[Rfam]
Notes:
Small nucleolar RNA Z157/R69/R10: a 99-nucleotide sequence from Senna tora.

RNA sequence: CUGUGUGCGGUGAUGAGGCAAUUUUGUGGACUAGAGUUUCUGAUCUGAGUACCAUACUCAGAAGUUGAUUAUCAAACCCUUGGCUGUCUGAGCACACCU
Numbered sequence: 001c002u003g004u005g006u007g008c009g010g011u012g013a014u015g016a017g018g019c020a021a022u023u024u025u026g027u028g029g030a031c032u033a034g035a036g037u038u039u040c041u042g043a044u045c046u047g048a049g050u051a052c053c054a055u056a057c058u059c060a061g062a063a064g065u066u067g068a069u070u071a072u073c074a075a076a077c078c079c080u081u082g083g084c085u086g087u088c089u090g091a092g093c094a095c096a097c098c099u
Stems, first nucleotide, its partner, number of pairs: 003097006039068002044063001045061005
Rfam classes the family as a C/D-box small nucleolar RNA.
The family has 10 seed sequences and 836 matches in Rfam 15.1.
The base pairs follow the family's consensus structure, which was predicted with PFOLD.
A reference for the family is Chen et al. (2003), "The high diversity of snoRNAs in plants: identification and comparative study of 120 snoRNA genes from Oryza sativa", Nucleic Acids Res.